Rfam assigns this 89-nucleotide RNA from Rhodopirellula baltica to the family "Group II catalytic intron D1-D4-1". From the family's description: Group II introns are found in rRNA, tRNA and mRNA of organelles in fungi, plants and protists, and also in mRNA in bacteria. NCBI's taxonomy places the organism under Bacteria, Pirellulales, Pirellulaceae, Rhodopirellula, Rhodopirellula baltica.
RNA sequence: GGCGGAAUGCGGCAACGUAUGCCCGUGCAAAGAGAAGUCAGCAGAGGGCAUAGUAGCGAUCCGCCGAAACCAACGGCGACGCGAAGGCC
Numbered sequence: 001g002g003c004g005g006a007a008u009g010c011g012g013c014a015a016c017g018u019a020u021g022c023c024c025g026u027g028c029a030a031a032g033a034g035a036a037g038u039c040a041g042c043a044g045a046g047g048g049c050a051u052a053g054u055a056g057c058g059a060u061c062c063g064c065c066g067a068a069a070c071c072a073a074c075g076g077c078g079a080c081g082c083g084a085a086g087g088c089c
Stems, first nucleotide, its partner, number of pairs: 002024001004023002007020005038045002047089003056082003063077003